[Rfam]
RNA sequence: CUCCAUAAGGGGAAGUAUUACCCCUUAUGGAAAUCGUGUAGCAUGUAGCA
Numbered sequence: 001c002u003c004c005a006u007a008a009g010g011g012g013a014a015g016u017a018u019u020a021c022c023c024c025u026u027a028u029g030g031a032a033a034u035c036g037u038g039u040a041g042c043a044u045g046u047a048g049c050a
Stems, first nucleotide, its partner, number of pairs: 002031010
RNA: ssNA-helicase RNA